Record summary
This 79-nucleotide RNA sequence from Geotrypetes seraphini belongs to the Rfam family "mir-34 microRNA precursor family". Its family is annotated with RISC complex and miRNA-mediated post-transcriptional gene silencing in the Gene Ontology. The family's consensus secondary structure was predicted with RNAalifold. Clan: mir-34 clan. Rfam describes the family as follows. Human mir-34a was discovered computationally and later experimentally verified.
RNA sequence: CCUGCCCAUGCAGAGCCGCUAGCUGAUUGGCUACCAUGAGAACUCGCAGCCAAUCAGCUAGCGGCUCUGCAUGGGCAGA
Numbered sequence: 001c002c003u004g005c006c007c008a009u010g011c012a013g014a015g016c017c018g019c020u021a022g023c024u025g026a027u028u029g030g031c032u033a034c035c036a037u038g039a040g041a042a043c044u045c046g047c048a049g050c051c052a053a054u055c056a057g058c059u060a061g062c063g064g065c066u067c068u069g070c071a072u073g074g075g076c077a078g079a
Base pairs, nucleotide, nucleotide: 002078003077004076005075006074009071010070012068013067014066015065016064017063018062019061020060021059022058024056025055026054027053028052029051030050031049